The family of this 149-nucleotide RNA sequence from Gossypium schwendimanii is "MIR8643 microRNA precursor family". Its family is annotated with miRNA-mediated post-transcriptional gene silencing and RISC complex in the Gene Ontology. The source organism's lineage runs through Eukaryota, Magnoliopsida, eudicotyledons, Pentapetalae and Gossypium.

[Rfam]
RNA sequence: AUUUCUUUUAACAUAUCAAGAAGUCGAGUUGGUAGUGAUGAAAGAAGCAAGAAGUCGAAAGCCAUUAUUGCCUAUAAUCAAAACCUAUAAACCCAUACCAUGCUUCUUUAUUCAUUGCCAAUUCGACUUUCUCAUGUGUUAAAAGAAAU
Numbered sequence: 001a002u003u004u005c006u007u008u009u010a011a012c013a014u015a016u017c018a019a020g021a022a023g024u025c026g027a028g029u030u031g032g033u034a035g036u037g038a039u040g041a042a043a044g045a046a047g048c049a050a051g052a053a054g055u056c057g058a059a060a061g062c063c064a065u066u067a068u069u070g071c072c073u074a075u076a077a078u079c080a081a082a083a084c085c086u087a088u089a090a091a092c093c094c095a096u097a098c099c100a101u102g103c104u105u106c107u108u109u110a111u112u113c114a115u116u117g118c119c120a121a122u123u124c125g126a127c128u129u130u131c132u133c134a135u136g137u138g139u140u141a142a143a144a145g146a147a148a149u
Stems, first nucleotide, its partner, number of pairs: 004146013018132001020130012033117006041109006048102002051099001057094001